[Rfam]
A member of the RNA family "Nuclear RNase P" from Ganoderma sinense, 524 nucleotides long. A search with the family's covariance model found it, with a score of 52 bits. The organism belongs to Ganoderma sinense, within Eukaryota. The family is grouped with related families in Rfam's "RNaseP clan". Pairs were carried over by alignment from the consensus structure, which is taken from published work. By type it is a ribozyme.
RNA sequence: ACAGAUCCAAGGCUGCGAAGCUCACGCCGCACAGGACGUCCUCGCACGUCCAUCUUCGUGAGCGGGCUAAGGUCUGAGCAUUCCAGUUCCCUGUAGCGCUGUUGCCUCGUUGAAAAAGCGGCUGACCGUCAUAUAGACGGCCAGCCGUAACGAGCCGACAUCUGCAGAUCGGUCCUAGACGGACUCGGGCGCAACGCUCGUCCGACGCAACCAGAAAUACAGCCGCGUUUCAACAAACGGUUCAUUACAGACGAGAUCCGCAAACCAGCGAAUCUCUUCUCGAGAAAGGCUUUGAAAUCUGUCGUGGAACAUGGGUCCCUUCUUGAUCGCCAACCAUCUCCCGUCGCGUGCGCCGGGUGGGUCUUCUGUCGCUCCUGGUGCUGCUGGCUUUGUGCUUCGCAGGCGGCGCGUGAGGGGUUGUGCGGUCAAGUCCUCUGCGGCUCUUUAGUGCACUUCGCCGCUCGCCCCAAACCAUAGACUCAUGGUUGCGGGGUGAAACUCGAUUCAGACUACUCUCGGUCUGU
Numbered sequence: 001a002c003a004g005a006u007c008c009a010a011g012g013c014u015g016c017g018a019a020g021c022u023c024a025c026g027c028c029g030c031a032c033a034g035g036a037c038g039u040c041c042u043c044g045c046a047c048g049u050c051c052a053u054c055u056u057c058g059u060g061a062g063c064g065g066g067c068u069a070a071g072g073u074c075u076g077a078g079c080a081u082u083c084c085a086g087u088u089c090c091c092u093g094u095a096g097c098g099c100u101g102u103u104g105c106c107u108c109g110u111u112g113a114a115a116a117a118g119c120g121g122c123u124g125a126c127c128g129u130c131a132u133a134u135a136g137a138c139g140g141c142c143a144g145c146c147g148u149a150a151c152g153a154g155c156c157g158a159c160a161u162c163u164g165c166a167g168a169u170c171g172g173u174c175c176u177a178g179a180c181g182g183a184c185u186c187g188g189g190c191g192c193a194a195c196g197c198u199c200g201u202c203c204g205a206c207g208c209a210a211c212c213a214g215a216a217a218u219a220c221a222g223c224c225g226c227g228u229u230u231c232a233a234c235a236a237a238c239g240g241u242u243c244a245u246u247a248c249a250g251a252c253g254a255g256a257u258c259c260g261c262a263a264a265c266c267a268g269c270g271a272a273u274c275u276c277u278u279c280u281c282g283a284g285a286a287a288g289g290c291u292u293u294g295a296a297a298u299c300u301g302u303c304g305u306g307g308a309a310c311a312u313g314g315g316u317c318c319c320u321u322c323u324u325g326a327u328c329g330c331c332a333a334c335c336a337u338c339u340c341c342c343g344u345c346g347c348g349u350g351c352g353c354c355g356g357g358u359g360g361g362u363c364u365u366c367u368g369u370c371g372c373u374c375c376u377g378g379u380g381c382u383g384c385u386g387g388c389u390u391u392g393u394g395c396u397u398c399g400c401a402g403g404c405g406g407c408g409c410g411u412g413a414g415g416g417g418u419u420g421u422g423c424g425g426u427c428a429a430g431u432c433c434u435c436u437g438c439g440g441c442u443c444u445u446u447a448g449u450g451c452a453c454u455u456c457g458c459c460g461c462u463c464g465c466c467c468c469a470a471a472c473c474a475u476a477g478a479c480u481c482a483u484g485g486u487u488g489c490g491g492g493g494u495g496a497a498a499c500u501c502g503a504u505u506c507a508g509a510c511u512a513c514u515c516u517c518g519g520u521c522u523g524u
Stems, first nucleotide, its partner, number of pairs: 001524004007518001009516001012461002015458004020063005034051006074508005081309004171185005186200005222290003462496007